Shown here is a 116-nucleotide RNA sequence, a member of the family "LOOT RNA".
It is annotated as a small RNA.
RNA sequence: GGCCUAAACCAAGCGGAUUCGCUCGGCAUGGUCAAGAAGACAGGUAGUGCAUAAAGAACCCUCACGGGGUUGCAUUACCUGCCACGCUGGGAAACUGGCGCGUCCGCUUCGGCGGA
Numbered sequence: 001g002g003c004c005u006a007a008a009c010c011a012a013g014c015g016g017a018u019u020c021g022c023u024c025g026g027c028a029u030g031g032u033c034a035a036g037a038a039g040a041c042a043g044g045u046a047g048u049g050c051a052u053a054a055a056g057a058a059c060c061c062u063c064a065c066g067g068g069g070u071u072g073c074a075u076u077a078c079c080u081g082c083c084a085c086g087c088u089g090g091g092a093a094a095c096u097g098g099c100g101c102g103u104c105c106g107c108u109u110c111g112g113c114g115g116a
Base pairs, nucleotide, nucleotide: 001033002032003031004030009026010025012023013022014021015020041081042080043079044078045077046076047075048074049073050072051071058070059069060068061067083102085100086099087098088097089096090095103116104115105114106113107112